[Rfam]
Nucleotides: 065
Base pairs, nucleotide, nucleotide: 001065002064003063004060005059006058007057008056009055010054011053012052015049016048017047018046019045020044024041025040026039
Number, partner (000 for none) and nucleotide at each position: 001065c002064u003063g004060g005059c006058u007057g008056a009055u010054c011053u012052c013000u014000c015049u016048u017047g018046g019045u020044g021000u022000u023000c024041a025040g026039a027000g028000u029000u030000u031000a032000a033000g034000u035000u036000u037000u038000a039026u040025c041024u042000a043000g044020c045019a046018c047017c048016a049015g050000u051000u052012g053011a054010g055009a056008u057007c058006a059005g060004u061000c062000a063003c064002a065001g
Background:
mir-29 microRNA precursor family: a 65-nucleotide sequence from Chelonoidis abingdonii. Taxonomically the source falls in Chelonoidis nigra species complex (Eukaryota, Craniata, Vertebrata, Sauria). This family represents the microRNA (miRNA) precursors mir-29. The match comes from Rfam's covariance-model search (56 bits). A reference for the family is Ambros (2001), "microRNAs: tiny regulators with great potential", Cell. Its family is annotated with gene silencing by miRNA and RISC complex in the Gene Ontology. Pairs were carried over by alignment from the consensus structure, which was predicted with PFOLD.